[Rfam]
RNA sequence: AUAAGUCUUCAGGGUGGGUAUUAUUCCCAACUGGCGGUAUAGUCCGCGAGCCUUAAUCGGCACGAUUUGGUGAAAUUCCAAAACCAACAGUAAAGUCUGGACGGAAGAAGAUUUUA
Number, nucleotide and partner (000 for none) at each position: 001a000002u000003a114004a113005g112006u111007c110008u109009u108010c107011a000012g000013g000014g000015u000016g028017g027018g026019u000020a000021u000022u000023a000024u000025u000026c018027c017028c016029a000030a096031c095032u086033g085034g047035c046036g045037g044038u000039a000040u000041a000042g084043u083044c037045c036046g035047c034048g000049a000050g000051c000052c060053u000054u000055a000056a000057u000058c000059g000060g052061c000062a000063c000064g000065a000066u082067u081068u080069g079070g078071u000072g000073a000074a000075a000076u000077u000078c070079c069080a068081a067082a066083a043084c042085c033086a032087a000088c099089a098090g097091u000092a000093a000094a000095g031096u030097c090098u089099g088100g000101a000102c000103g000104g000105a000106a000107g010108a009109a008110g007111a006112u005113u004114u003115u000116a000
The record is a 116-nucleotide RNA from Criibacterium bergeronii, which matches "FMN riboswitch aptamer (RFN element)" in Rfam. Pairs were carried over by alignment from the consensus structure, which is taken from published work. Taxonomically the source falls in Criibacterium (Bacteria, Bacillati, Peptostreptococcales, Filifactoraceae).